RNA sequence: CAGCCAGCCAAUUAAGCUGCUUAUCUGAAUGCAUUUCCACAGAAAUUUAGAAAUAGCUCACAAUAGUGAUGCCAUUUUAUGAGCUUUAAAGAACAUGGAGAUUGUUACAGUCCUUCAAUAUGGCUAAAAUA
Number, nucleotide and partner (000 for none) at each position: 001c000002a000003g061004c000005c000006a058007g057008c000009c000010a000011a000012u000013u000014a000015a000016g000017c042018u041019g040020c000021u000022u000023a000024u000025c000026u000027g000028a000029a000030u000031g000032c000033a000034u000035u000036u000037c000038c000039a000040c019041a018042g017043a000044a000045a000046u000047u000048u000049a000050g000051a000052a000053a000054u000055a000056g000057c007058u006059c000060a000061c003062a000063a000064u000065a000066g000067u000068g000069a000070u000071g124072c123073c122074a121075u000076u000077u000078u000079a000080u000081g000082a000083g111084c110085u109086u000087u107088a106089a105090a000091g103092a102093a000094c000095a000096u000097g000098g000099a000100g000101a000102u092103u091104g000105u089106u088107a087108c000109a085110g084111u083112c000113c000114u000115u000116c000117a000118a000119u000120a000121u074122g073123g072124c071125u000126a000127a000128a000129a000130u000131a000

The record is a 131-nucleotide sequence from Jaculus jaculus, which matches "Small nucleolar RNA SNORA33" in Rfam. About the family: ACA33 is a member of the H/ACA class of snoRNA that guide the sites of modification of uridines to pseudouridines. The source organism's lineage runs through Eukaryota, Bilateria, Eutheria, Boreoeutheria and Jaculus. Rfam 15.1 lists 1,176 matches to the family in 522 species. By type it is an H/ACA-box small nucleolar RNA.